Shown here is a 71-nucleotide sequence from Anolis carolinensis, a member of the family "mir-34 microRNA precursor family". The family has 113 seed sequences and 2,256 matches in Rfam 15.1. Human mir-34a was discovered computationally and later experimentally verified. The mature sequence is excised from the 5' arm of the hairpin. The family is grouped with related families in Rfam's "mir-34 clan". The sequence is in the family's curated seed alignment. Pairs were carried over by alignment from the consensus structure, which was predicted with RNAalifold.
[Rfam]
RNA sequence: GGUUUGUAGGCAGUGUAGUUAGCUGAUUGUGAGGUUUCCUUGGCAAUCACUAGCUUUACUGUCAUCAAAAC
Numbered sequence: 001g002g003u004u005u006g007u008a009g010g011c012a013g014u015g016u017a018g019u020u021a022g023c024u025g026a027u028u029g030u031g032a033g034g035u036u037u038c039c040u041u042g043g044c045a046a047u048c049a050c051u052a053g054c055u056u057u058a059c060u061g062u063c064a065u066c067a068a069a070a071c
Base pairs, nucleotide, nucleotide: 003069004068005067006066009063010062012060013059014058015057017055018054019053020052021051022050024049025048026047027046028045029044030043